Metazoan signal recognition particle RNA: a 302-nucleotide sequence from Acipenser ruthenus.
Gene Ontology terms of the family: SRP-dependent cotranslational protein targeting to membrane, signal sequence recognition and signal recognition particle, endoplasmic reticulum targeting.
The source organism's lineage runs through Eukaryota, Teleostomi, Actinopteri, Acipenseroidei and Acipenser.
It scores 212 bits against the family's covariance model.
Its Rfam clan is "SRP clan".
About the family: The signal recognition particle (SRP) is a universally conserved ribonucleoprotein.
RNA sequence: GCCGGGCGCCGUGGCGUGUGUCUGUAAUGCCAGCUACAGGGGCAGGUUGAGGCUGGCGGAUCGCUUGAGCACGGGAGCUCUGUGCUGCAACUGGCUGUGCCGAUCGGGAGUCCGCACUUAGCACGGCAUCGACAUGGCAUUUCUGGGGGAGCUCGUGAAUGCCAGGUCGUCUAAGGAGGGGUGAACCGGCACAGGUCGGGAACGGAGCAGGUCAAAACCCCCGUGUCGCACCAGUAGUGGGACUGCGCCUGUGAGCGGAUGUUGCAGUGCAUCCUUUGCAAAACAACGAAACCCAGCCUCCU
Numbered sequence: 001g002c003c004g005g006g007c008g009c010c011g012u013g014g015c016g017u018g019u020g021u022c023u024g025u026a027a028u029g030c031c032a033g034c035u036a037c038a039g040g041g042g043c044a045g046g047u048u049g050a051g052g053c054u055g056g057c058g059g060a061u062c063g064c065u066u067g068a069g070c071a072c073g074g075g076a077g078c079u080c081u082g083u084g085c086u087g088c089a090a091c092u093g094g095c096u097g098u099g100c101c102g103a104u105c106g107g108g109a110g111u112c113c114g115c116a117c118u119u120a121g122c123a124c125g126g127c128a129u130c131g132a133c134a135u136g137g138c139a140u141u142u143c144u145g146g147g148g149g150a151g152c153u154c155g156u157g158a159a160u161g162c163c164a165g166g167u168c169g170u171c172u173a174a175g176g177a178g179g180g181g182u183g184a185a186c187c188g189g190c191a192c193a194g195g196u197c198g199g200g201a202a203c204g205g206a207g208c209a210g211g212u213c214a215a216a217a218c219c220c221c222c223g224u225g226u227c228g229c230a231c232c233a234g235u236a237g238u239g240g241g242a243c244u245g246c247g248c249c250u251g252u253g254a255g256c257g258g259a260u261g262u263u264g265c266a267g268u269g270c271a272u273c274c275u276u277u278g279c280a281a282a283a284c285a286a287c288g289a290a291a292c293c294c295a296g297c298c299u300c301c302u
Stems, first nucleotide, its partner, number of pairs: 001047003004023006028044003049300008061289003065285001069279003073275003081271011095258004100253001105251004110246002112241002115239004121232001124228006130169004135164008144155004170176002178221005188213003196205003